[Rfam]
RNA sequence: GGUACGUACGGCGACUGGCGCACGGGGAAGCGACCCCGGGGAAGCCGUGCGUGACAUGCGCACGAGGUGCCGCCCGCCUGGGCACCCCGG
Numbered sequence: 001g002g003u004a005c006g007u008a009c010g011g012c013g014a015c016u017g018g019c020g021c022a023c024g025g026g027g028a029a030g031c032g033a034c035c036c037c038g039g040g041g042a043a044g045c046c047g048u049g050c051g052u053g054a055c056a057u058g059c060g061c062a063c064g065a066g067g068u069g070c071c072g073c074c075c076g077c078c079u080g081g082g083c084a085c086c087c088c089g090g
Base pairs, nucleotide, nucleotide: 003053004052005051006050007049008048009047010046011045012044015041016040017078018077019076020075024037025036026035027034067085068084069083070082071081